[Rfam]
RNA sequence: UGGUCAUCACCCAGGUUUUUAGAGCGCUGUUUCUGAUUUGCUGGGGACAUGAUAAAACAAACGUGCCACUAGGUUUUACCUCUGCUACCUUGUUAGCAUCCAACCACCUGCAAACAUUU
Numbered sequence: 001u002g003g004u005c006a007u008c009a010c011c012c013a014g015g016u017u018u019u020u021a022g023a024g025c026g027c028u029g030u031u032u033c034u035g036a037u038u039u040g041c042u043g044g045g046g047a048c049a050u051g052a053u054a055a056a057a058c059a060a061a062c063g064u065g066c067c068a069c070u071a072g073g074u075u076u077u078a079c080c081u082c083u084g085c086u087a088c089c090u091u092g093u094u095a096g097c098a099u100c101c102a103a104c105c106a107c108c109u110g111c112a113a114a115c116a117u118u119u
Base pairs, nucleotide, nucleotide: 003053004052005051006050007049010046011045012044026041027040029038067110068109072105073104074103075102083098084097085096
The family of this 119-nucleotide RNA from Chrysochloris asiatica is "Small nucleolar RNA SNORA32". Gene Ontology terms of the family: RNA processing and nucleolus. The match comes from Rfam's covariance-model search (89 bits). The family has 9 seed sequences and 615 matches in Rfam 15.1. From the family's description: ACA32 is a member of the H/ACA class of snoRNA that guide the sites of modification of uridines to pseudouridines. The organism belongs to Chrysochloris, within Eukaryota. The family's RNA type in Rfam is H/ACA-box small nucleolar RNA. Pairs were carried over by alignment from the consensus structure, which was predicted with RNAfold.